This 181-nucleotide RNA belongs to the Rfam family "malK-I RNA". Rfam classes the family as a cis-regulatory element. The family's consensus secondary structure is taken from published work.

RNA sequence: UCCCGCCGCCGGGUACCACUCCACUUCAUGGUGCCGGGCGGUCAAAAAAAGGAGGAAUAAAAUCCCGCUGUGACUGGCGGUGCGGCAGUGUGGAGACCUGUCGUAAAGCGGCGCACCCAUAGCGGUGGCCGUGAGGCUGCUCCUUGCGGAGGCAGAGCAGCUGCAGUCAAGUAAAAUGGCA
Numbered sequence: 001u002c003c004c005g006c007c008g009c010c011g012g013g014u015a016c017c018a019c020u021c022c023a024c025u026u027c028a029u030g031g032u033g034c035c036g037g038g039c040g041g042u043c044a045a046a047a048a049a050a051g052g053a054g055g056a057a058u059a060a061a062a063u064c065c066c067g068c069u070g071u072g073a074c075u076g077g078c079g080g081u082g083c084g085g086c087a088g089u090g091u092g093g094a095g096a097c098c099u100g101u102c103g104u105a106a107a108g109c110g111g112c113g114c115a116c117c118c119a120u121a122g123c124g125g126u127g128g129c130c131g132u133g134a135g136g137c138u139g140c141u142c143c144u145u146g147c148g149g150a151g152g153c154a155g156a157g158c159a160g161c162u163g164c165a166g167u168c169a170a171g172u173a174a175a176a177u178g179g180c181a
Stems, first nucleotide, its partner, number of pairs: 006041005012035007065080004071169006081105008090097002108132005114127003135162008145154003